[Rfam]
RNA sequence: CCACGGGCUGGCGCCCGUGGCUAUGUUGUUCCGCCCCUAUCGGGGCU
Numbered sequence: 001c002c003a004c005g006g007g008c009u010g011g012c013g014c015c016c017g018u019g020g021c022u023a024u025g026u027u028g029u030u031c032c033g034c035c036c037c038u039a040u041c042g043g044g045g046c047u
Base pairs, nucleotide, nucleotide: 001020002019003018004017005016006015007014008013033046034045035044036043037042
The family of this 47-nucleotide RNA from Caulifigura coniformis is "Acido-Lenti-1 RNA". The source organism's lineage runs through Bacteria, Pseudomonadati, Planctomycetia, Planctomycetaceae and Caulifigura. It is annotated as a small RNA. A search with the family's covariance model found it, with a score of 40 bits.